RNA sequence: GUGAGGGUGAUGAAAAAAAUCAUUCGGAUUCCCAAUGAUUCCCUUACGUACGGGAAAUUAUGUGAUUAUUUACCAGCUACUUUUGACUCAU
Numbered sequence: 001g002u003g004a005g006g007g008u009g010a011u012g013a014a015a016a017a018a019a020u021c022a023u024u025c026g027g028a029u030u031c032c033c034a035a036u037g038a039u040u041c042c043c044u045u046a047c048g049u050a051c052g053g054g055a056a057a058u059u060a061u062g063u064g065a066u067u068a069u070u071u072a073c074c075a076g077c078u079a080c081u082u083u084u085g086a087c088u089c090a091u
Stems, first nucleotide, its partner, number of pairs: 001091005
Rfam assigns this 91-nucleotide sequence to the family "Small nucleolar RNA R12". Its family is annotated with nucleolus and RNA processing in the Gene Ontology. The family's consensus secondary structure was predicted with PFOLD. It is one of the family's seed sequences. The family has 9 seed sequences and 992 matches in Rfam 15.1. Rfam's curators write: snoR12 is a C/D box small nucleolar RNA, which acts as a methylation guide for 25S ribosomal RNA in plants. snoR12 has been alternatively named snoZ44 in Arabidopsis and snoZ131 in rice. It is annotated as a C/D-box small nucleolar RNA.